[Rfam]
RNA: L17 ribosomal protein downstream element
RNA sequence: GGAGCGUUAUGAUGAUGGGACUUAAUGAGAGUUAAGUAACCAAGUGUCUAGCUCUAGUUUUCCUAGGGGGAUUGCCUCCUAGG
Numbered sequence: 001g002g003a004g005c006g007u008u009a010u011g012a013u014g015a016u017g018g019g020a021c022u023u024a025a026u027g028a029g030a031g032u033u034a035a036g037u038a039a040c041c042a043a044g045u046g047u048c049u050a051g052c053u054c055u056a057g058u059u060u061u062c063c064u065a066g067g068g069g070g071a072u073u074g075c076c077u078c079c080u081a082g083g
Base pairs, nucleotide, nucleotide: 002054003053004052005051011048012047013046017041018040062083063082064081065080066079067078068077069076070075
Dot-bracket structure: .((((.....(((...((.....................))....)))..)))).......(((((((((....)))))))))